Source information: Shown here is a 129-nucleotide RNA sequence from Eurystomus gularis, a member of the family "Small Cajal body specific RNA 4". Taxonomically the source falls in Eurystomus (Eukaryota, Sauropsida, Dinosauria, Neoaves). It scores 85 bits against the family's covariance model. About the family: scaRNAs are a specific class of small nuclear RNAs which localise to the Cajal bodies and guide the modification of RNA polymerase II transcribed spliceosomal RNAs U1, U2, U4, U5 and U12. ACA26 belongs to the H/ACA box class of guide RNAs as it has the predicted hairpin-hinge-hairpin-tail structure, conserved H/ACA-box motifs and is found associated with GAR1. The family is grouped with related families in Rfam's "SCARNA4 clan".
RNA sequence: ACUGGAGGACUGAUCAGACUGGGUCUGAAGAGUAAGACUCAGAUGACAAUAGCCUCCUAAAAGAAAAGGGAUGGAGAGAGCAGCCUUGCUUAGAGAAGAGUGGAGGGCUGACUGUGCCAUCGGACACUU
Number, nucleotide and partner (000 for none) at each position: 001a000002c000003u059004g057005g056006a055007g054008g053009a000010c000011u000012g000013a000014u000015c000016a000017g044018a000019c042020u000021g040022g039023g038024u037025c036026u035027g000028a000029a000030g000031a000032g000033u000034a000035a026036g025037a024038c023039u022040c021041a000042g019043a000044u017045g000046a000047c000048a000049a000050u000051a000052g000053c008054c007055u006056c005057c004058u000059a003060a000061a000062a000063g000064a000065a000066a000067a000068g000069g121070g120071a000072u000073g000074g000075a000076g000077a000078g000079a113080g112081c110082a109083g108084c107085c106086u105087u104088g000089c000090u000091u102092a101093g000094a000095g000096a000097a000098g000099a000100g000101u092102g091103g000104a087105g086106g085107g084108c083109u082110g081111a000112c080113u079114g000115u000116g000117c000118c000119a000120u070121c069122g000123g000124a000125c000126a000127c000128u000129u000

Rfam classes the family as a small Cajal body RNA.